[Rfam]
RNA sequence: AAGCCCCUGCGGUGUUAGUGAUUGAUAAGAUUCUUUGUUCCAACACGAUAAAAAAGGGAGCUCUACCUGGUAUCAUGAGUGAUUUCCGUCAAUUGUCAUGGAAACCCGAAGGUGCCACAGGGUGCCCACCUAAAUAAAUAGGUUCAAAAGGUUUAUCAACACGGCAUUCCGCGGGGGCUUU
Numbered sequence: 001a002a003g004c005c006c007c008u009g010c011g012g013u014g015u016u017a018g019u020g021a022u023u024g025a026u027a028a029g030a031u032u033c034u035u036u037g038u039u040c041c042a043a044c045a046c047g048a049u050a051a052a053a054a055a056g057g058g059a060g061c062u063c064u065a066c067c068u069g070g071u072a073u074c075a076u077g078a079g080u081g082a083u084u085u086c087c088g089u090c091a092a093u094u095g096u097c098a099u100g101g102a103a104a105c106c107c108g109a110a111g112g113u114g115c116c117a118c119a120g121g122g123u124g125c126c127c128a129c130c131u132a133a134a135u136a137a138a139u140a141g142g143u144u145c146a147a148a149a150g151g152u153u154u155a156u157c158a159a160c161a162c163g164g165c166a167u168u169c170c171g172c173g174g175g176g177g178c179u180u181u
Base pairs, nucleotide, nucleotide: 002179003178004177005176006175007174008173009172010171011170012167013166014165015164018162019161032151033150034149035148036146037145040142041141056127057126058125060123061122062121063120064119069116070115071114072113074112081105086101087100088099089098
Description: Rfam assigns this 181-nucleotide sequence from Candidatus Magnetomorum sp. HK-1 to the family "6S / SsrS RNA". On this family, see Wassarman and Storz, Cell 2000: "6S RNA regulates E. coli RNA polymerase activity". Rfam classes the family as a non-coding RNA gene. Pairs were carried over by alignment from the consensus structure, which is taken from published work. NCBI's taxonomy places the organism under Bacteria, Pseudomonadati, Thermodesulfobacteriota, Candidatus Magnetomoraceae, Candidatus Magnetomorum. The family has 150 seed sequences and 5,006 matches in Rfam 15.1.